The family of this 76-nucleotide sequence from Thiobacillus denitrificans is "Xanthomonas sRNA sX9".
The source organism's lineage runs through Bacteria, Pseudomonadati, Pseudomonadota, Thiobacillaceae and Thiobacillus.
The literature on the family includes a 2011 paper in Nucleic Acids Res by Schmidtke et al., "Genome-wide transcriptome analysis of the plant pathogen Xanthomonas identifies sRNAs with putative virulence functions".
By type it is a small RNA.
Pairs were carried over by alignment from the consensus structure, which was predicted with RNAalifold.
RNA sequence: AUGUAUACCCACAUACACUCCGGUUCCUGCGCUCCGGGCGCACCCGGCUGAUGACCGCUCGCUACGAUUUCUAGAC
Numbered sequence: 001a002u003g004u005a006u007a008c009c010c011a012c013a014u015a016c017a018c019u020c021c022g023g024u025u026c027c028u029g030c031g032c033u034c035c036g037g038g039c040g041c042a043c044c045c046g047g048c049u050g051a052u053g054a055c056c057g058c059u060c061g062c063u064a065c066g067a068u069u070u071c072u073a074g075a076c
Base pairs, nucleotide, nucleotide: 002017003016004015005014006013021036022035023034026031049074051072053070054069